Shown here is a 58-nucleotide RNA sequence from Streptococcus sp. DD13, a member of the family "Lacto-rpoB RNA". Pairs were carried over by alignment from the consensus structure, which is taken from published work.

RNA sequence: AUUUGUCGUCUUGCUCACUUGAAAUAUUGUCCAAGUAGGCGAAACAGCAGUUAAAUCA
Number, nucleotide and partner (000 for none) at each position: 001a000002u000003u000004u000005g000006u000007c000008g045009u044010c000011u000012u041013g040014c039015u038016c000017a036018c035019u034020u033021g032022a000023a000024a000025u000026a000027u000028u000029g000030u000031c000032c021033a020034a019035g018036u017037a000038g015039g014040c013041g012042a000043a000044a009045c008046a000047g000048c000049a000050g000051u000052u000053a000054a000055a000056u000057c000058a000